[Rfam]
RNA sequence: GGUUAUAGAAGGAUAAGCUUAAGACCUUAAUUUUAUAGUC
Numbered sequence: 001g002g003u004u005a006u007a008g009a010a011g012g013a014u015a016a017g018c019u020u021a022a023g024a025c026c027u028u029a030a031u032u033u034u035a036u037a038g039u040c
Base pairs, nucleotide, nucleotide: 001040002039003038004037005036006035008033009028010027011026012025
RNA: S4-Flavobacteria ribosomal protein leader